Rfam assigns this 63-nucleotide RNA sequence from Bifidobacterium moraviense to the family "SAM-VI (S-adenosyl methionine) riboswitch aptamer".
RNA sequence: CGUAUCAUUGUGCCUCGCGCGUCCUCGCGCGGGGCGAUAAGUCCGAAAGAGGGAUGAUAUGAC
Numbered sequence: 001c002g003u004a005u006c007a008u009u010g011u012g013c014c015u016c017g018c019g020c021g022u023c024c025u026c027g028c029g030c031g032g033g034g035c036g037a038u039a040a041g042u043c044c045g046a047a048a049g050a051g052g053g054a055u056g057a058u059a060u061g062a063c
Base pairs, nucleotide, nucleotide: 001061002060003059004058005057006056007055008054009053011036012035013034014033015032016031017030018029019028021026043052044051